[Rfam]
RNA sequence: UGGAGGACUGAGAAGGUUGAGCAGCCUGUGCUGCUAUAACUGGUUAUAGCCUCCGAGAGCAACGCACAGCGCACUCCACGAGGCGGCUCCGCCCCAUCGGAGCCGCUCGGCAGUGUUUGUGAACAUUAU
Numbered sequence: 001u002g003g004a005g006g007a008c009u010g011a012g013a014a015g016g017u018u019g020a021g022c023a024g025c026c027u028g029u030g031c032u033g034c035u036a037u038a039a040c041u042g043g044u045u046a047u048a049g050c051c052u053c054c055g056a057g058a059g060c061a062a063c064g065c066a067c068a069g070c071g072c073a074c075u076c077c078a079c080g081a082g083g084c085g086g087c088u089c090c091g092c093c094c095c096a097u098c099g100g101a102g103c104c105g106c107u108c109g110g111c112a113g114u115g116u117u118u119g120u121g122a123a124c125a126u127u128a129u
Stems, first nucleotide, its partner, number of pairs: 002054005015041004020035006065121003071116001073114003082107010
RNA: Small nucleolar RNA SNORA47